Rfam assigns this 115-nucleotide RNA sequence from Anguilla anguilla to the family "U5 spliceosomal RNA". By type it is a spliceosomal small nuclear RNA. A reference for the family is Hinz et al. (1996), "Domain analysis of human U5 RNA. Cap trimethylation, protein binding, and spliceosome assembly", J Biol Chem. The organism belongs to Anguilla, within Eukaryota.
RNA sequence: GUGCUCGGGUUUCUCUUCAUCACGCACAAAUCUUUCGCCUUUUACUAAAGAUUUCCGUGGAGAGAACACUCCUGAGUUUGUGCUAUUUUUGGAUGCUCCGUCCGCCGGACGGCGA
Numbered sequence: 001g002u003g004c005u006c007g008g009g010u011u012u013c014u015c016u017u018c019a020u021c022a023c024g025c026a027c028a029a030a031u032c033u034u035u036c037g038c039c040u041u042u043u044a045c046u047a048a049a050g051a052u053u054u055c056c057g058u059g060g061a062g063a064g065a066a067c068a069c070u071c072c073u074g075a076g077u078u079u080g081u082g083c084u085a086u087u088u089u090u091g092g093a094u095g096c097u098c099c100g101u102c103c104g105c106c107g108g109a110c111g112g113c114g115a
Base pairs, nucleotide, nucleotide: 003077004076005075006074009067010066012065013064014063015062016061017060018059019058028054029053030052031051032050033049034048035047094115096114098112099111100110101109